[Rfam]
RNA sequence: ACCAAAGAGGAAGGUCCCAUUACUGCAGGGAUCUUAGCAGUACUGGGACCUACCUCUUUGG
Numbered sequence: 001a002c003c004a005a006a007g008a009g010g011a012a013g014g015u016c017c018c019a020u021u022a023c024u025g026c027a028g029g030g031a032u033c034u035u036a037g038c039a040g041u042a043c044u045g046g047g048a049c050c051u052a053c054c055u056c057u058u059u060g061g
Base pairs, nucleotide, nucleotide: 002061003060004059005058006057007056008055009054010053012051013050014049015048016047017046018045019044021042022041023040024039025038026037027035028034029033
A member of the RNA family "mir-583 microRNA precursor family" from Pan troglodytes, 61 nucleotides long. The sequence is in the family's curated seed alignment. Rfam links the family to the GO terms RISC complex and miRNA-mediated post-transcriptional gene silencing. The literature on the family includes a 2010 paper in BMC Res Notes by Brameier, "Genome-wide comparative analysis of microRNAs in three non-human primates". Pairs were carried over by alignment from the consensus structure, which was predicted with RNAalifold.